[Rfam]
RNA sequence: UUGAAGCUCCAUCUACAAAUGGAUAAGACCCGGUAUUAGUGUAUACGAGUUUUUUUUUUAAUCAAAAAAGGAGCAAUAAUCCCUCUUGAUAGAAAAGAGGGAUUAUUGCUCCUUUUU
Numbered sequence: 001u002u003g004a005a006g007c008u009c010c011a012u013c014u015a016c017a018a019a020u021g022g023a024u025a026a027g028a029c030c031c032g033g034u035a036u037u038a039g040u041g042u043a044u045a046c047g048a049g050u051u052u053u054u055u056u057u058u059u060a061a062u063c064a065a066a067a068a069a070g071g072a073g074c075a076a077u078a079a080u081c082c083c084u085c086u087u088g089a090u091a092g093a094a095a096a097g098a099g100g101g102a103u104u105a106u107u108g109c110u111c112c113u114u115u116u117u
Base pairs, nucleotide, nucleotide: 008023009022010021011020012019067115068114069113070112071111072110073109074108075107076106077105078104079103081101082100083099084096086094087093

Shown here is a 117-nucleotide RNA from Weigela japonica, a member of the family "Plastid-psbA-1 3UTR RNA".
From the family's description: Plastid psbA-1 is a non-coding RNA (ncRNA) present in plastids.
Rfam classes the family as a cis-regulatory element.
Clan: Plastid-psbA 3UTR RNA clan.
The family's consensus secondary structure was predicted with LocARNA.